[Rfam]
RNA sequence: UGUUCAUUUAAAUGUAAGUCGCUUUGGAUAAAAGUGUCUGCCAAAUGCAUAAAU
Numbered sequence: 001u002g003u004u005c006a007u008u009u010a011a012a013u014g015u016a017a018g019u020c021g022c023u024u025u026g027g028a029u030a031a032a033a034g035u036g037u038c039u040g041c042c043a044a045a046u047g048c049a050u051a052a053a054u
Stems, first nucleotide, its partner, number of pairs: 013043001014041003020036006
The family of this 54-nucleotide RNA from Danionella cerebrum is "UnaL2 LINE 3' element". The organism belongs to Danionella, within Eukaryota. A search with the family's covariance model found it, with a score of 59 bits. For this family Rfam cites "Solution structure of an RNA stem-loop derived from the 3' conserved region of eel LINE UnaL2" (Baba et al., RNA, 2004). Gene Ontology term of the family: transposition, RNA-mediated. The family's consensus secondary structure is taken from published work. About the family: The eel long interspersed element (LINE) UnaL2 and its partner short interspersed element (SINE) share a conserved 3' tail containing a stem-loop that is critical for their retrotransposition. Presumably, the first step of retrotransposition is the recognition of their 3' tails by UnaL2-encoded reverse transcriptase. The solution structure of a 17-nucleotide RNA derived from the 3' tail of UnaL2 was determined by NMR. By type it is a cis-regulatory element.